Source information
The record is a 277-nucleotide sequence from Kazachstania africana, which matches "Small nucleolar RNA snR191" in Rfam. On this family, see Badis et al., RNA 2003: "A snoRNA that guides the two most conserved pseudouridine modifications within rRNA confers a growth advantage in yeast". Gene Ontology terms of the family: nucleolus and RNA processing. Taxonomically the source falls in Kazachstania africana (Eukaryota, Ascomycota, saccharomyceta, Saccharomycetaceae). The base pairs follow the family's consensus structure, which was predicted with WAR.
[Rfam]
RNA sequence: UUCCAAAGCUCUUUGUCAGGGGAUUUCUCAGUUUAUUAUCUAUAAACCACCAAUACAGAAGUGCCUGUUACAGUUUUGGUAAAUUAAUAUUGCUGGUAGUUCAUUAUUCUUCGUUUUGAAGAGCCUAAAUGGAUAAAUUUGGUCGGAAAUGCCUUCGUUCUGAGGACGAUCUCGUUCAAUGUUACAGCAAUGAGGAUCUUAAGAGUUGAGAGCAGCAUAGAAGCAUAUUUGUUUCAACUUUUCCAUGGCUGCUCUCGUAGUAAAGAACUUCACAUCU
Numbered sequence: 001u002u003c004c005a006a007a008g009c010u011c012u013u014u015g016u017c018a019g020g021g022g023a024u025u026u027c028u029c030a031g032u033u034u035a036u037u038a039u040c041u042a043u044a045a046a047c048c049a050c051c052a053a054u055a056c057a058g059a060a061g062u063g064c065c066u067g068u069u070a071c072a073g074u075u076u077u078g079g080u081a082a083a084u085u086a087a088u089a090u091u092g093c094u095g096g097u098a099g100u101u102c103a104u105u106a107u108u109c110u111u112c113g114u115u116u117u118g119a120a121g122a123g124c125c126u127a128a129a130u131g132g133a134u135a136a137a138u139u140u141g142g143u144c145g146g147a148a149a150u151g152c153c154u155u156c157g158u159u160c161u162g163a164g165g166a167c168g169a170u171c172u173c174g175u176u177c178a179a180u181g182u183u184a185c186a187g188c189a190a191u192g193a194g195g196a197u198c199u200u201a202a203g204a205g206u207u208g209a210g211a212g213c214a215g216c217a218u219a220g221a222a223g224c225a226u227a228u229u230u231g232u233u234u235c236a237a238c239u240u241u242u243c244c245a246u247g248g249c250u251g252c253u254c255u256c257g258u259a260g261u262a263a264a265g266a267a268c269u270u271c272a273c274a275u276c277u
Base pairs, nucleotide, nucleotide: 003079004078005077006076007075019066020065021064023062024061025060026059027058028057033042090190091189092188093187094186095185097136099134100133101132102131103130104129107123108122109121110120111119112118141177142176144174145173151167153165154164155163156162157161192271193270194269195268197266198265199264200263207257208256209255210254211253214250215249216248220238223235225233